Rfam assigns this 119-nucleotide RNA from Cloacibacillus porcorum to the family "Molybdenum/Tungsten riboswitch aptamer (Moco RNA motif)". Pairs were carried over by alignment from the consensus structure, which is taken from published work.
[Rfam]
RNA sequence: UAAAUAAUGGUUCUCCGAGCCUGCGUACCUAAGGAAAAGGAUCUAUGGUUAUCAGGCCGUCAGGGUUGCUUUGGAAACGAAACAGCCUCCCUUUGGAAAGGAGAACGGCUGUUGCUUAC
Numbered sequence: 001u002a003a004a005u006a007a008u009g010g011u012u013c014u015c016c017g018a019g020c021c022u023g024c025g026u027a028c029c030u031a032a033g034g035a036a037a038a039g040g041a042u043c044u045a046u047g048g049u050u051a052u053c054a055g056g057c058c059g060u061c062a063g064g065g066u067u068g069c070u071u072u073g074g075a076a077a078c079g080a081a082a083c084a085g086c087c088u089c090c091c092u093u094u095g096g097a098a099a100g101g102a103g104a105a106c107g108g109c110u111g112u113u114g115c116u117u118a119c
Stems, first nucleotide, its partner, number of pairs: 003113002006110001011105006019057005027049003033044003063088006070081004089096002
The source organism's lineage runs through Bacteria, Thermotogati, Synergistota, Synergistia and Cloacibacillus. Its family is annotated with molybdenum ion binding, regulation of gene expression and tungstate binding in the Gene Ontology. A search with the family's covariance model found it, with a score of 80 bits.